[Rfam]
RNA sequence: AAAAAAGCUGUCUAGGGUUCCGCUGCUGCUUAAGUUUGCAGCAGGUCUGGUCCGAGAGAGAGCGUAUAGAAAGCAUCAAAAGAUGUCUUUCUAUAAACACGGAAGGAUAAAAGCCUGGGAGAU
Numbered sequence: 001a002a003a004a005a006a007g008c009u010g011u012c013u014a015g016g017g018u019u020c021c022g023c024u025g026c027u028g029c030u031u032a033a034g035u036u037u038g039c040a041g042c043a044g045g046u047c048u049g050g051u052c053c054g055a056g057a058g059a060g061a062g063c064g065u066a067u068a069g070a071a072a073g074c075a076u077c078a079a080a081a082g083a084u085g086u087c088u089u090u091c092u093a094u095a096a097a098c099a100c101g102g103a104a105g106g107a108u109a110a111a112a113g114c115c116u117g118g119g120a121g122a123u
Stems, first nucleotide, its partner, number of pairs: 007063003011059002015053002020050002022047001023044006065095009098118001100121001104116003
The family of this 123-nucleotide RNA from Aeribacillus pallidus is "Guanidine-I riboswitch aptamer". The family has 100 seed sequences and 1,509 matches in Rfam 15.1. Taxonomically the source falls in Aeribacillus (Bacteria, Bacillota, Caryophanales, Bacillaceae). For this family Rfam cites "Structural basis for guanidine sensing by the ykkC family of riboswitches" (Battaglia et al., RNA, 2017).